Source information: The family of this 87-nucleotide RNA sequence is "GA-cis RNA". The family's RNA type in Rfam is small RNA.
RNA sequence: UAGAGAAGGAAACAAAAUGAGCAAAGCUCAUUUUAUAGAAUGUUUCUGACACUUGCCGCUGACCGAAGGGAGGGGGCGUUUCAUAUU
Numbered sequence: 001u002a003g004a005g006a007a008g009g010a011a012a013c014a015a016a017a018u019g020a021g022c023a024a025a026g027c028u029c030a031u032u033u034u035a036u037a038g039a040a041u042g043u044u045u046c047u048g049a050c051a052c053u054u055g056c057c058g059c060u061g062a063c064c065g066a067a068g069g070g071a072g073g074g075g076g077c078g079u080u081u082c083a084u085a086u087u
Stems, first nucleotide, its partner, number of pairs: 008047006016032006055077003059073002063069002